[Rfam]
RNA sequence: CCAUCUGUAUCACCAGAUGACCCUAGGGUUCUGAAUAAAGCAGCGAACCCGACAAUGUAACGAAGUUCAGCAGUUUGCUGAGCGGGAAUGGAAUCGUGAGAGGACGUUCCUCCUGAUAACCACAAAUCGGGUAAGUGC
Numbered sequence: 001c002c003a004u005c006u007g008u009a010u011c012a013c014c015a016g017a018u019g020a021c022c023c024u025a026g027g028g029u030u031c032u033g034a035a036u037a038a039a040g041c042a043g044c045g046a047a048c049c050c051g052a053c054a055a056u057g058u059a060a061c062g063a064a065g066u067u068c069a070g071c072a073g074u075u076u077g078c079u080g081a082g083c084g085g086g087a088a089u090g091g092a093a094u095c096g097u098g099a100g101a102g103g104a105c106g107u108u109c110c111u112c113c114u115g116a117u118a119a120c121c122a123c124a125a126a127u128c129g130g131g132u133a134a135g136u137g138c
Stems, first nucleotide, its partner, number of pairs: 002019006027049005065083006084111004094101002112131006